[Rfam]
RNA sequence: GGAUGUAGGGCAAUCUGACUGUGACAUUUGUCACCCCAUUGAUCACUAGAGUUGAUUCAGCUGAUCUGGCUGGCUAGGCAUGCGCUCCCUUCCUCCCUCACCGCUCCAUGUGCGUCCCUCCUGUAGCCCCGCGCUUGGUGGAAAAGGACAAUUGCCCUGGACGAGCAUCGUUAGUAUAUGCAGAGAUGCACUCCAUACAUACAAGCUCAAGGCCCAGUUGAAGGAGAAACAUAGGGAAGUCAAGCCCAAGACUUCAAACACAUCCAAAUGAGGCACUGCACAUGGCAGUCUUGCAGCGAUUC
Numbered sequence: 001g002g003a004u005g006u007a008g009g010g011c012a013a014u015c016u017g018a019c020u021g022u023g024a025c026a027u028u029u030g031u032c033a034c035c036c037c038a039u040u041g042a043u044c045a046c047u048a049g050a051g052u053u054g055a056u057u058c059a060g061c062u063g064a065u066c067u068g069g070c071u072g073g074c075u076a077g078g079c080a081u082g083c084g085c086u087c088c089c090u091u092c093c094u095c096c097c098u099c100a101c102c103g104c105u106c107c108a109u110g111u112g113c114g115u116c117c118c119u120c121c122u123g124u125a126g127c128c129c130c131g132c133g134c135u136u137g138g139u140g141g142a143a144a145a146g147g148a149c150a151a152u153u154g155c156c157c158u159g160g161a162c163g164a165g166c167a168u169c170g171u172u173a174g175u176a177u178a179u180g181c182a183g184a185g186a187u188g189c190a191c192u193c194c195a196u197a198c199a200u201a202c203a204a205g206c207u208c209a210a211g212g213c214c215c216a217g218u219u220g221a222a223g224g225a226g227a228a229a230c231a232u233a234g235g236g237a238a239g240u241c242a243a244g245c246c247c248a249a250g251a252c253u254u255c256a257a258a259c260a261c262a263u264c265c266a267a268a269u270g271a272g273g274c275a276c277u278g279c280a281c282a283u284g285g286c287a288g289u290c291u292u293g294c295a296g297c298g299a300u301u302c
Stems, first nucleotide, its partner, number of pairs: 001107003005101002007098004013091001017089001023086001025084001027082001029080004034073002036069003041066004046060002116165001117163001119161002121138003126134002139159003146155001148153001185245001187243001191239002194236001196225001198223001202220003267301002270297001273294002275289005
RNA: 7SK RNA
Organism: Coregonus sp. 'balchen'